RNA sequence: ACCUGUAUUCACAAGGGCUUGAGGUCUCACCCAUGACUCGGUCAUUGACAGUGCAGGGAGAGGAGCUCUGAAAGCGUUUCCCAUGUUUGGUGGGUUCGAUCCCGUCCCUCCCAAACCCUGUAGCCUGCAGGCA
Numbered sequence: 001a002c003c004u005g006u007a008u009u010c011a012c013a014a015g016g017g018c019u020u021g022a023g024g025u026c027u028c029a030c031c032c033a034u035g036a037c038u039c040g041g042u043c044a045u046u047g048a049c050a051g052u053g054c055a056g057g058g059a060g061a062g063g064a065g066c067u068c069u070g071a072a073a074g075c076g077u078u079u080c081c082c083a084u085g086u087u088u089g090g091u092g093g094g095u096u097c098g099a100u101c102c103c104g105u106c107c108c109u110c111c112c113a114a115a116c117c118c119u120g121u122a123g124c125c126u127g128c129a130g131g132c133a
Stems, first nucleotide, its partner, number of pairs: 002057008014046002017043001019041003023038004068130003072126001074124002085116005090110001092108003

Small nucleolar RNA SNORA71: a 133-nucleotide RNA sequence from Balaeniceps rex. About the family: The members of this family belong to the H/ACA class of snoRNAs which bind a number of proteins (including dyskerin, Gar1p and Nop10p) to form snoRNP complexes. The match comes from Rfam's covariance-model search (86 bits). The literature on the family includes a 1997 paper in Genes Dev by Ganot et al., "The family of box ACA small nucleolar RNAs is defined by an evolutionarily conserved secondary structure and ubiquitous sequence elements essential for RNA accumulation".